[Rfam]
A member of the RNA family "MtlS RNA" from Aliivibrio salmonicida, 121 nucleotides long. Rfam's curators put it in the seed alignment. The family's RNA type in Rfam is small RNA.

RNA sequence: UUCCCCGUUUGAGGUUUUUAUUAAACUGUCUAAAAAUGACUCGCCAAAGUCAUUGGUUAAUUUCUAAGUACAGACAUAAUUUACCAUAGAUUUUUUAAUUGAACCGAUAACGGGAAAUUCG
Numbered sequence: 001u002u003c004c005c006c007g008u009u010u011g012a013g014g015u016u017u018u019u020a021u022u023a024a025a026c027u028g029u030c031u032a033a034a035a036a037u038g039a040c041u042c043g044c045c046a047a048a049g050u051c052a053u054u055g056g057u058u059a060a061u062u063u064c065u066a067a068g069u070a071c072a073g074a075c076a077u078a079a080u081u082u083a084c085c086a087u088a089g090a091u092u093u094u095u096u097a098a099u100u101g102a103a104c105c106g107a108u109a110a111c112g113g114g115a116a117a118u119u120c121g
Stems, first nucleotide, its partner, number of pairs: 004114006014104003018101001020099003023094003026089003031083003037052005057079003062074002